[Rfam]
RNA sequence: AGUGUUAUAUCAAACUAAAGUAGUAUGUGAUUUAUUCACUACCAAAUAGGACACGUUGAAUAAGGAA
Numbered sequence: 001a002g003u004g005u006u007a008u009a010u011c012a013a014a015c016u017a018a019a020g021u022a023g024u025a026u027g028u029g030a031u032u033u034a035u036u037c038a039c040u041a042c043c044a045a046a047u048a049g050g051a052c053a054c055g056u057u058g059a060a061u062a063a064g065g066a067a
Base pairs, nucleotide, nucleotide: 002054003053004052005051006050015049016048017047023042024041025040028038029037